[Rfam]
RNA: Flavo-1 RNA
RNA sequence: UUAUAAACCCGAUUGAAGUGAAAAUACUUUUUGUUUAUUGAUGUCAUCCUGAACGUUAGUGAAGGAUCUGUUAGUGAAUGCAGACCAGAAGUAGAUUCUCCAAUACGUUGGAGAUAACAAAAGACCCAAACAAAAAGAUUGUAACGGAAAGCGGGGCUUGCC
Numbered sequence: 001u002u003a004u005a006a007a008c009c010c011g012a013u014u015g016a017a018g019u020g021a022a023a024a025u026a027c028u029u030u031u032u033g034u035u036u037a038u039u040g041a042u043g044u045c046a047u048c049c050u051g052a053a054c055g056u057u058a059g060u061g062a063a064g065g066a067u068c069u070g071u072u073a074g075u076g077a078a079u080g081c082a083g084a085c086c087a088g089a090a091g092u093a094g095a096u097u098c099u100c101c102a103a104u105a106c107g108u109u110g111g112a113g114a115u116a117a118c119a120a121a122a123g124a125c126c127c128a129a130a131c132a133a134a135a136a137g138a139u140u141g142u143a144a145c146g147g148a149a150a151g152c153g154g155g156g157c158u159u160g161c162c
Stems, first nucleotide, its partner, number of pairs: 009154003013150002018145002023140003029135008